[Rfam]
RNA: SAM riboswitch aptamer (S box leader)
Organism: Acidaminococcus intestini
RNA sequence: CCUUCAUCGAGAGCAGCAGAGGGAUUUGGCCCUAUGAAGCUGCGGCAACCCCCGAAUGGGAAGGUGCUAAUUCCAACAGGCCAUGCGGCUUGGCAGAUGAGCG
Numbered sequence: 001c002c003u004u005c006a007u008c009g010a011g012a013g014c015a016g017c018a019g020a021g022g023g024a025u026u027u028g029g030c031c032c033u034a035u036g037a038a039g040c041u042g043c044g045g046c047a048a049c050c051c052c053c054g055a056a057u058g059g060g061a062a063g064g065u066g067c068u069a070a071u072u073c074c075a076a077c078a079g080g081c082c083a084u085g086c087g088g089c090u091u092g093g094c095a096g097a098u099g100a101g102c103g
Stems, first nucleotide, its partner, number of pairs: 001103001003101006013043005021032003026076004044068004049064002051060003072095001077092006